The family of this 123-nucleotide RNA from Thermogemmatispora tikiterensis is "SAM riboswitch aptamer (S box leader)". The SAM riboswitch is found upstream of a number of genes which code for proteins involved in methionine or cysteine biosynthesis in Gram-positive bacteria. Pairs were carried over by alignment from the consensus structure, which is taken from published work. A search with the family's covariance model found it, with a score of 78 bits.
RNA sequence: CUCUCAUCCAGAGAGGUGGAGGGAAACGGCCCGAUGAAGCCCGGCAACCCAUCUGCCGCCGUGGCCACUGCCCGCGCAGCAGGAAGGGUGCCAAUUCCGGCGGAACGUUCCGCAAGAUGAGGG
Numbered sequence: 001c002u003c004u005c006a007u008c009c010a011g012a013g014a015g016g017u018g019g020a021g022g023g024a025a026a027c028g029g030c031c032c033g034a035u036g037a038a039g040c041c042c043g044g045c046a047a048c049c050c051a052u053c054u055g056c057c058g059c060c061g062u063g064g065c066c067a068c069u070g071c072c073c074g075c076g077c078a079g080c081a082g083g084a085a086g087g088g089u090g091c092c093a094a095u096u097c098c099g100g101c102g103g104a105a106c107g108u109u110c111c112g113c114a115a116g117a118u119g120a121g122g123g
Stems, first nucleotide, its partner, number of pairs: 001123008013042001015041003021032003027099003043092004048088002052084002096115001101112004